[Rfam]
RNA sequence: AUGGAAGUGAGGACCCUUUCCCCAGCUGAUCGACUAUGAUUAUACUGUGCGCACAUGUGACCCCUCUUCGGAGGAGGAUCCCAAGCCAGAUUUCUGAUCCAU
Numbered sequence: 001a002u003g004g005a006a007g008u009g010a011g012g013a014c015c016c017u018u019u020c021c022c023c024a025g026c027u028g029a030u031c032g033a034c035u036a037u038g039a040u041u042a043u044a045c046u047g048u049g050c051g052c053a054c055a056u057g058u059g060a061c062c063c064c065u066c067u068u069c070g071g072a073g074g075a076g077g078a079u080c081c082c083a084a085g086c087c088a089g090a091u092u093u094c095u096g097a098u099c100c101a102u
Stems, first nucleotide, its partner, number of pairs: 001102005